[Rfam]
This 114-nucleotide RNA from Paenibacillus methanolicus belongs to the Rfam family "epsC RNA".
RNA sequence: UGGUAACGUCCGCUGCACCAUUAUCACUGCGGACACUCGGUCAUGCUGUGGGUUUCGAAGGAAACCUUAGACGAUCUCGUCAAGGGUAUGAUGUGAGGUAGGGUUAGAUGCCCU
Numbered sequence: 001u002g003g004u005a006a007c008g009u010c011c012g013c014u015g016c017a018c019c020a021u022u023a024u025c026a027c028u029g030c031g032g033a034c035a036c037u038c039g040g041u042c043a044u045g046c047u048g049u050g051g052g053u054u055u056c057g058a059a060g061g062a063a064a065c066c067u068u069a070g071a072c073g074a075u076c077u078c079g080u081c082a083a084g085g086g087u088a089u090g091a092u093g094u095g096a097g098g099u100a101g102g103g104u105u106a107g108a109u110g111c112c113c114u
Stems, first nucleotide, its partner, number of pairs: 001020004008034006036097004040092008050067007070081004100114005

Pairs were carried over by alignment from the consensus structure, which is taken from published work. It is annotated as a cis-regulatory element.